[Rfam]
RNA sequence: CACACACGGACUUUGGUGUCUGCCCGGGAGAAAUCCGGCGGAAACCUCCGGUGGCGUUCGAGGACCAAGUCCAAAAAAUGCCUGUGUCCGUGGAGGCUAACCGGAAAGGAAAUAA
Numbered sequence: 001c002a003c004a005c006a007c008g009g010a011c012u013u014u015g016g017u018g019u020c021u022g023c024c025c026g027g028g029a030g031a032a033a034u035c036c037g038g039c040g041g042a043a044a045c046c047u048c049c050g051g052u053g054g055c056g057u058u059c060g061a062g063g064a065c066c067a068a069g070u071c072c073a074a075a076a077a078a079u080g081c082c083u084g085u086g087u088c089c090g091u092g093g094a095g096g097c098u099a100a101c102c103g104g105a106a107a108g109g110a111a112a113u114a115a
Stems, first nucleotide, its partner, number of pairs: 001095001003093001005092007015046002025037002028035001053082006

Shown here is a 115-nucleotide RNA sequence from Mesorhizobium sp. LSHC420B00, a member of the family "rpsB sRNA". It scores 45 bits against the family's covariance model. NCBI's taxonomy places the organism under Bacteria, Pseudomonadati, Alphaproteobacteria, Hyphomicrobiales, Mesorhizobium. For this family Rfam cites "Identification of candidate structured RNAs in the marine organism 'Candidatus Pelagibacter ubique'" (Meyer et al., BMC Genomics, 2009). Pairs were carried over by alignment from the consensus structure, which is taken from published work.